[Rfam]
Rfam assigns this 587-nucleotide part of an RNA from Acidiferrobacter sp. SPIII_3 to the family "Bacterial large subunit ribosomal RNA". On this family, see Yusupov et al., Science 2001: "Crystal structure of the ribosome at 5.5 A resolution".

RNA sequence: CCCGCCGCAAGACGGAAAGACCCCGUGCACCUUUACUAUAGCUUCACACUGGACUUUGAACAUGUCUGUGUAGGAUAGGUGGGAGGCAAUGAAGUGGGGACGCUAGUCCUCAUGGAGCCAACCGUGAAAUACCACCCUGACCUGUUUGAGGUUCUAACCGUGGUCCGUCAUCCGGAUCCGGGACCGUGUGUGGUGGGUAGUUUGACUGGGGCGGUCUCCUCCCAAAGAGUAACGGAGGAGCGCGAAGGUACCCUCAGCGCGGUCGGAAAUCGCGCUUCGAGUGCAAUGGCAUAAGGGUGCUUAACUGCGAGACAGACACGUCGAGCAGGUGCGAAAGCAGGUCAUAGUGAUCCGGUGGUUCUGUAUGGAAGGGCCAUCGCUCAACGGAUAAAAGGUACGCCGGGGAUAACAGGCUUAUACCGCCCAAGAGUUCAUAUCGACGGCGGUGUUUGGCACCUCGAUGUCGGCUCAUCACAUCCUGGGGCUGUAGCCGGUCCCAAGGGUAUGGCUGUUCGCCAUUUAAAGUGGUACGCGAGCUGGGUUUAGAACGUCGUGAGACAGUUUGGUCCCUAUCUGCGGUGGGCGUU
Numbered sequence: 001c002c003c004g005c006c007g008c009a010a011g012a013c014g015g016a017a018a019g020a021c022c023c024c025g026u027g028c029a030c031c032u033u034u035a036c037u038a039u040a041g042c043u044u045c046a047c048a049c050u051g052g053a054c055u056u057u058g059a060a061c062a063u064g065u066c067u068g069u070g071u072a073g074g075a076u077a078g079g080u081g082g083g084a085g086g087c088a089a090u091g092a093a094g095u096g097g098g099g100a101c102g103c104u105a106g107u108c109c110u111c112a113u114g115g116a117g118c119c120a121a122c123c124g125u126g127a128a129a130u131a132c133c134a135c136c137c138u139g140a141c142c143u144g145u146u147u148g149a150g151g152u153u154c155u156a157a158c159c160g161u162g163g164u165c166c167g168u169c170a171u172c173c174g175g176a177u178c179c180g181g182g183a184c185c186g187u188g189u190g191u192g193g194u195g196g197g198u199a200g201u202u203u204g205a206c207u208g209g210g211g212c213g214g215u216c217u218c219c220u221c222c223c224a225a226a227g228a229g230u231a232a233c234g235g236a237g238g239a240g241c242g243c244g245a246a247g248g249u250a251c252c253c254u255c256a257g258c259g260c261g262g263u264c265g266g267a268a269a270u271c272g273c274g275c276u277u278c279g280a281g282u283g284c285a286a287u288g289g290c291a292u293a294a295g296g297g298u299g300c301u302u303a304a305c306u307g308c309g310a311g312a313c314a315g316a317c318a319c320g321u322c323g324a325g326c327a328g329g330u331g332c333g334a335a336a337g338c339a340g341g342u343c344a345u346a347g348u349g350a351u352c353c354g355g356u357g358g359u360u361c362u363g364u365a366u367g368g369a370a371g372g373g374c375c376a377u378c379g380c381u382c383a384a385c386g387g388a389u390a391a392a393a394g395g396u397a398c399g400c401c402g403g404g405g406a407u408a409a410c411a412g413g414c415u416u417a418u419a420c421c422g423c424c425c426a427a428g429a430g431u432u433c434a435u436a437u438c439g440a441c442g443g444c445g446g447u448g449u450u451u452g453g454c455a456c457c458u459c460g461a462u463g464u465c466g467g468c469u470c471a472u473c474a475c476a477u478c479c480u481g482g483g484g485c486u487g488u489a490g491c492c493g494g495u496c497c498c499a500a501g502g503g504u505a506u507g508g509c510u511g512u513u514c515g516c517c518a519u520u521u522a523a524a525g526u527g528g529u530a531c532g533c534g535a536g537c538u539g540g541g542u543u544u545a546g547a548a549c550g551u552c553g554u555g556a557g558a559c560a561g562u563u564u565g566g567u568c569c570c571u572a573u574c575u576g577c578g579g580u581g582g583g584c585g586u587u
Base pairs, nucleotide, nucleotide: 001583002582003581004580005579006578007577008576010575011574012573014570015569022404023403024402025401027400028399029396030395031394032393033392035201036200037199038198042193043192045190046189047188048187051154052153053152054151055150056149057148058147059146060145061144062143064141065140066139068137078136079135080134081133082132085119086118087117094113095112096111097110098109099108100107101106158181159180160179162178163177164176165175166174167173204216205215206214207213217239218238219237220236221235222234240385242342243341248300249299250298251297252296253295254280255279257275258274259273260272261271262270281290282289305328306327307326308325311322312321313320330339331338332337353379354378355377356376357375358374359373361372362371413454414453415452417451418448419447420446421445422444423443424442428438429437465540466538467537468536469535470532471529472528473527474526475525478503479502481498482497483496484495485494486493505519506518507517508516509515546564547563548562549561550559551558552557